[Rfam]
RNA sequence: GCGGAUGAAAUCUAGGGUUCCGAUCUCUUCACGGGGAUGCCUGGUCCAAGAGGUUUCCACCGGCCUUGCCGGUUGCACGGAGGGACAAAAGCCCGGGAGAC
Numbered sequence: 001g002c003g004g005a006u007g008a009a010a011u012c013u014a015g016g017g018u019u020c021c022g023a024u025c026u027c028u029u030c031a032c033g034g035g036g037a038u039g040c041c042u043g044g045u046c047c048a049a050g051a052g053g054u055u056u057c058c059a060c061c062g063g064c065c066u067u068g069c070c071g072g073u074u075g076c077a078c079g080g081a082g083g084g085a086c087a088a089a090a091g092c093c094c095g096g097g098a099g100a101c
Base pairs, nucleotide, nucleotide: 007057008056009055010054011053012052015047016046020044021043022041023038024037025036026035027034028033059073060072061071062070063069076096078099082094083093084092
Notes: Rfam assigns this 101-nucleotide sequence from Synechococcus sp. CC9605 to the family "Guanidine-I riboswitch aptamer". This family represents a conserved RNA structure found upstream of the ykkC and yxkD genes in Bacillus subtilis and related genes in other bacteria. The function of this family is unclear although it has been suggested that it may function to switch on efflux pumps and detoxification systems in response to harmful environmental molecules. Pairs were carried over by alignment from the consensus structure. The literature on the family includes a 2017 paper in RNA by Battaglia et al., "Structural basis for guanidine sensing by the ykkC family of riboswitches". Taxonomically the source falls in Synechococcus (Bacteria, Cyanophyceae, Synechococcales, Synechococcaceae).